The record is a 67-nucleotide RNA from Oenanthe oenanthe, which matches "mir-34 microRNA precursor family" in Rfam. For this family Rfam cites "Vertebrate microRNA genes" (Lim et al., Science, 2003). The organism belongs to Oenanthe, within Eukaryota. About the family: Human mir-34a was discovered computationally and later experimentally verified. A search with the family's covariance model found it, with a score of 62 bits.
RNA sequence: GGUUGCCAGGCAGUGUAGUUAGCUGAUUGCCCAAAGCUCCAAUCACUAGCCACACAGCCAGGCAAAA
Numbered sequence: 001g002g003u004u005g006c007c008a009g010g011c012a013g014u015g016u017a018g019u020u021a022g023c024u025g026a027u028u029g030c031c032c033a034a035a036g037c038u039c040c041a042a043u044c045a046c047u048a049g050c051c052a053c054a055c056a057g058c059c060a061g062g063c064a065a066a067a
Stems, first nucleotide, its partner, number of pairs: 003065004009059002013055004018050005024045006